Record summary
Rfam assigns this 113-nucleotide RNA from Prolemur simus to the family "Y RNA". Taxonomically the source falls in Prolemur (Eukaryota, Bilateria, Chordata, Boreoeutheria). Pairs were carried over by alignment from the consensus structure, which is taken from published work.

Nucleotides: 113
Base pairs, nucleotide, nucleotide: 001109002108003107004106005105006104007103010101011100014097015096016092017091018090019089020088021087044074047071048070
Number, partner (000 for none) and nucleotide at each position: 001109g002108g003107c004106u005105g006104g007103u008000u009000u010101g011100a012000a013000g014097g015096u016092a017091g018090u019089g020088a021087g022000u023000u024000a025000c026000c027000u028000c029000a030000g031000u032000u033000g034000a035000u036000u037000g038000u039000u040000c041000a042000c043000a044074g045000u046000u047071a048070g049000u050000u051000a052000c053000a054000g055000a056000g057000u058000g059000a060000a061000c062000u063000c064000c065000u066000u067000g068000u069000u070048c071047u072000a073000c074044u075000c076000u077000u078000u079000c080000c081000c082000c083000u084000c085000u086000u087021c088020u089019c090018a091017c092016u093000a094000c095000u096015g097014c098000a099000a100011u101010u102000u103007a104006c105005u106004a107003g108002u109001c110000u111000u112000a113000a